[Rfam]
RNA: MIR5269 microRNA precursor family
Nucleotides: 080
Base pairs, nucleotide, nucleotide: 001080002079003078004077006075007074008073009072010071011070012069013068014067015066016065017064018063023058024057025056026054027053028052029051030050031049032048
Number, partner (000 for none) and nucleotide at each position: 001080u002079u003078u004077g005000a006075u007074g008073a009072a010071a011070u012069c013068a014067a015066u016065g017064u018063a019000g020000g021000a022000c023058c024057u025056a026054c027053a028052c029051u030050u031049u032048a033000g034000a035000a036000a037000u038000g039000g040000a041000a042000c043000c044000c045000a046000u047000a048032u049031a050030a051029a052028g053027u054026g055000g056025u057024g058023g059000g060000a061000c062000a063018u064017a065016c066015a067014u068013u069012g070011a071010u072009u073008u074007c075006a076000c077004c078003a079002a080001a